PreQ1 (pre queuosine) riboswitch aptamer: a 44-nucleotide RNA from Paenibacillus sp. D9. Its family is annotated with queuosine biosynthetic process in the Gene Ontology. From the family's description: This family is a bacterial riboswitch that binds to the metabolite preQ1, an intermediate in the biosynthesis of the modified nucleoside queuosine from GTP. One example of this riboswitch is located in the leader of the Bacillus subtilis ykvJKLM (queCDEF) operon which encodes four genes necessary for queuosine production. PreQ1 binding to the riboswitch aptamer is thought to induce premature transcription termination within the leader to down-regulate expression of these genes. The organism belongs to Paenibacillus, within Bacteria. The literature on the family includes a 2009 paper in J Biol Chem by Spitale et al., "The structural basis for recognition of the PreQ0 metabolite by an unusually small riboswitch aptamer domain". The family has 43 seed sequences and 873 matches in Rfam 15.1.
[Rfam]
RNA sequence: CCGGGAGAGGUUCGCGAACUCCCUCUAUAAAAAACUACAAGGCG
Numbered sequence: 001c002c003g004g005g006a007g008a009g010g011u012u013c014g015c016g017a018a019c020u021c022c023c024u025c026u027a028u029a030a031a032a033a034a035c036u037a038c039a040a041g042g043c044g
Stems, first nucleotide, its partner, number of pairs: 006026005016036001